mir-3473 microRNA precursor family: a 70-nucleotide RNA sequence from Dipodomys ordii. NCBI's taxonomy places the organism under Eukaryota, Deuterostomia, Rodentia, Castorimorpha, Dipodomys.

[Rfam]
RNA sequence: ACCGCUGAGCCACCUUCCCAGCCCAGGUAUAACUUAAAUAAAGCAGGGGCUGGGAAGGUGGCUCAGCGGU
Dot-bracket structure: .(((((((((((((((((((((((......................))))))))))))))))))))))).